Shown here is a 122-nucleotide RNA from Maribellus luteus, a member of the family "FMN riboswitch aptamer (RFN element)".
The match comes from Rfam's covariance-model search (115 bits).
Pairs were carried over by alignment from the consensus structure, which is taken from published work.

RNA sequence: GAUAUUCUUCGGGGCAGGGUGCAAGUCCCUACCGGCGGUGAUAGUCCGCGACUCCUUGCAAGAGGAUUGAUUUGGUGAAAUUCCAAAACCGACAGUUACAGUCUGGAUGAGAGAAGAAUCCA
Numbered sequence: 001g002a003u004a005u006u007c008u009u010c011g012g013g014g015c016a017g018g019g020u021g022c023a024a025g026u027c028c029c030u031a032c033c034g035g036c037g038g039u040g041a042u043a044g045u046c047c048g049c050g051a052c053u054c055c056u057u058g059c060a061a062g063a064g065g066a067u068u069g070a071u072u073u074g075g076u077g078a079a080a081u082u083c084c085a086a087a088a089c090c091g092a093c094a095g096u097u098a099c100a101g102u103c104u105g106g107a108u109g110a111g112a113g114a115a116g117a118a119u120c121c122a
Base pairs, nucleotide, nucleotide: 004119005118006117007116008115009114010113017029018028019027031102032101033091034090035049036048037047038046044089045088053066054065071087072086073085074084075083093105094104095103